[Rfam]
Background
Shown here is a 66-nucleotide sequence from Galemys pyrenaicus, a member of the family "mir-8/mir-141/mir-200 microRNA precursor family". Lineage of the source: Eukaryota > Metazoa > Deuterostomia > Boreoeutheria > Galemys. Clan: mir-8 microRNA precursor clan.

RNA sequence: GGCGCCAUCUUACCGGGCAGCAUUGGACGUGCGUGUUCUCUAAUACUGCCUGGUAAUGAUGACGGC
Numbered sequence: 001g002g003c004g005c006c007a008u009c010u011u012a013c014c015g016g017g018c019a020g021c022a023u024u025g026g027a028c029g030u031g032c033g034u035g036u037u038c039u040c041u042a043a044u045a046c047u048g049c050c051u052g053g054u055a056a057u058g059a060u061g062a063c064g065g066c
Stems, first nucleotide, its partner, number of pairs: 003064002006061004010056011022044006